[Rfam]
RNA: MIR7486 microRNA precursor family
Nucleotides: 087
Stems, first nucleotide, its partner, number of pairs: 001086011013074007021066001023064004028059002031056007040047002
Number, partner (000 for none) and nucleotide at each position: 001086c002085c003084u004083g005082a006081g007080g008079a009078a010077g011076c012000a013074u014073u015072u016071u017070g018069u019068c020000c021066a022000c023064g024063u025062c026061a027000g028059c029058a030000a031056a032055a033054a034053a035052c036051g037050c038000g039000u040047c041046c042000u043000u044000a045000a046041g047040g048000a049000a050037g051036c052035g053034u054033u055032u056031u057000c058029u059028g060000a061026u062025g063024a064023c065000g066021u067000a068019g069018a070017c071016a072015a073014a074013a075000c076011g077010c078009u079008u080007c081006c082005u083004c084003a085002g086001g087000g